Source information: Small nucleolar RNA SNORD121A: an 82-nucleotide RNA sequence from Lophotis ruficrista. The family's consensus secondary structure was predicted with WAR. Taxonomically the source falls in Lophotis (Eukaryota, Gnathostomata, Theropoda, Neognathae). A search with the family's covariance model found it, with a score of 55 bits. A reference for the family is Yang et al. (2006), "snoSeeker: an advanced computational package for screening of guide and orphan snoRNA genes in the human genome", Nucleic Acids Res. By type it is a C/D-box small nucleolar RNA.
RNA sequence: GUUCAAAAUGUAGUGAUGUCUUUUCCAAGCACACAUCUGAUUGCUCUGUGUGGAAAAUGACUGUUGCUGAGUGAUUUUGAGU
Numbered sequence: 001g002u003u004c005a006a007a008a009u010g011u012a013g014u015g016a017u018g019u020c021u022u023u024u025c026c027a028a029g030c031a032c033a034c035a036u037c038u039g040a041u042u043g044c045u046c047u048g049u050g051u052g053g054a055a056a057a058u059g060a061c062u063g064u065u066g067c068u069g070a071g072u073g074a075u076u077u078u079g080a081g082u
Stems, first nucleotide, its partner, number of pairs: 001082006008075002011071001